[Rfam]
RNA: glmS glucosamine-6-phosphate activated ribozyme aptamer
RNA sequence: UAAUAGAUUAAAGCGCCAGAACUUAAAGUUUUAUUUAUAGACUAAUAAGUAAUUUAACUUUAGUAGAUUAAAAUGCUUAUUAAGAUUCUUAAUAAAUUUAAGUUGACGAGGUUGGGGAGUAUCGAAUUUUCGGCGGAUGCCCCACGGUAAAGCACUACCGUAAAAGAUUGGUUAAAACUUAAAAGUGAUUUUAAGGACAAAGCCAAUUGGGUGUUUAA
Numbered sequence: 001u002a003a004u005a006g007a008u009u010a011a012a013g014c015g016c017c018a019g020a021a022c023u024u025a026a027a028g029u030u031u032u033a034u035u036u037a038u039a040g041a042c043u044a045a046u047a048a049g050u051a052a053u054u055u056a057a058c059u060u061u062a063g064u065a066g067a068u069u070a071a072a073a074u075g076c077u078u079a080u081u082a083a084g085a086u087u088c089u090u091a092a093u094a095a096a097u098u099u100a101a102g103u104u105g106a107c108g109a110g111g112u113u114g115g116g117g118a119g120u121a122u123c124g125a126a127u128u129u130u131c132g133g134c135g136g137a138u139g140c141c142c143c144a145c146g147g148u149a150a151a152g153c154a155c156u157a158c159c160g161u162a163a164a165a166g167a168u169u170g171g172u173u174a175a176a177a178c179u180u181a182a183a184a185g186u187g188a189u190u191u192u193a194a195g196g197a198c199a200a201a202g203c204c205a206a207u208u209g210g211g212u213g214u215u216u217a218a
Stems, first nucleotide, its partner, number of pairs: 020104008029095001113144005122133004145160005166208006178195007